[Rfam]
Record summary
The family of this 118-nucleotide RNA sequence from Triticum aestivum is "Small nucleolar RNA snoR104". On this family, see Marker et al., Curr Biol 2002: "Experimental RNomics: identification of 140 candidates for small non-messenger RNAs in the plant Arabidopsis thaliana". It is annotated as an H/ACA-box small nucleolar RNA. NCBI's taxonomy places the organism under Eukaryota, Tracheophyta, Euphyllophyta, commelinids, Triticum. Gene Ontology terms of the family: RNA processing and nucleolus.

RNA sequence: UGGUGGCAUUCAAAGGACAACAUGUCUACCUGAUACAAUCUUCCUAAAGUAAAAUUUCCAUUUCCUGCUUGUGGUAUCUUUAGGAAGUUCUGCAAGUCUCAAAUGAGAAAACAUCCAU
Number, nucleotide and partner (000 for none) at each position: 001u000002g030003g029004u000005g027006g025007c024008a023009u022010u000011c000012a000013a000014a000015g000016g000017a000018c000019a000020a000021c000022a009023u008024g007025u006026c000027u005028a000029c003030c002031u000032g000033a000034u000035a000036c000037a000038a000039u000040c000041u000042u000043c000044c000045u000046a000047a000048a000049g000050u000051a000052a000053a000054a000055u000056u111057u110058c000059c000060a000061u000062u000063u000064c000065c000066u000067g097068c096069u095070u094071g093072u092073g091074g090075u000076a088077u087078c000079u000080u000081u000082a000083g000084g000085a000086a000087g077088u076089u000090c074091u073092g072093c071094a070095a069096g068097u067098c000099u000100c000101a000102a000103a000104u000105g000106a000107g000108a000109a000110a057111a056112c000113a000114u000115c000116c000117a000118u000